[Rfam]
RNA sequence: CUCUUAUCAAGAGCGGUGGAGGGACUGGCCCGAUGAAACCCGGCAACCAUUAGGCAAAAUUUACGUUUUGCUUAAACGGUGCCAAUGCCUGCGGAACGAUGGUUCCUGUCGAUAGGAG
Numbered sequence: 001c002u003c004u005u006a007u008c009a010a011g012a013g014c015g016g017u018g019g020a021g022g023g024a025c026u027g028g029c030c031c032g033a034u035g036a037a038a039c040c041c042g043g044c045a046a047c048c049a050u051u052a053g054g055c056a057a058a059a060u061u062u063a064c065g066u067u068u069u070g071c072u073u074a075a076a077c078g079g080u081g082c083c084a085a086u087g088c089c090u091g092c093g094g095a096a097c098g099a100u101g102g103u104u105c106c107u108g109u110c111g112a113u114a115g116g117a118g
Base pairs, nucleotide, nucleotide: 001118002117003116004115005114006113007112008111013041015040016039017038021031022030023029025091027089028088042083043082044081045080047079048078050074052072087110093106094105095104096103097102
RNA: SAM riboswitch aptamer (S box leader)
Organism: Aneurinibacillus danicus